Rfam assigns this 185-nucleotide sequence to the family "c-di-AMP riboswitch aptamer (ydaO/yuaA leader)".
RNA sequence: GGGCAGGGAUCGCCGAACAACUUGGAUGGAGGCGGGGGACCCACCGGUCCACCGAUAUAUAUGGACCUGGAACCGUAAGCGGUUCCUAGGGGUGAAGCCAACACCGUCGUCACCGACGGCAAGGCCGGGCAACCUCUCCAGCCCGAACCCGACAGCUGACCUCGUGGGCGCAUCAGAGAGGACAC
Numbered sequence: 001g002g003g004c005a006g007g008g009a010u011c012g013c014c015g016a017a018c019a020a021c022u023u024g025g026a027u028g029g030a031g032g033c034g035g036g037g038g039a040c041c042c043a044c045c046g047g048u049c050c051a052c053c054g055a056u057a058u059a060u061a062u063g064g065a066c067c068u069g070g071a072a073c074c075g076u077a078a079g080c081g082g083u084u085c086c087u088a089g090g091g092g093u094g095a096a097g098c099c100a101a102c103a104c105c106g107u108c109g110u111c112a113c114c115g116a117c118g119g120c121a122a123g124g125c126c127g128g129g130c131a132a133c134c135u136c137u138c139c140a141g142c143c144c145g146a147a148c149c150c151g152a153c154a155g156c157u158g159a160c161c162u163c164g165u166g167g168g169c170g171c172a173u174c175a176g177a178g179a180g181g182a183c184a185c
Base pairs, nucleotide, nucleotide: 011170012169013168014167018031032165033164034163035162036161037160042089090150091149092148098124099123127144128143129142130141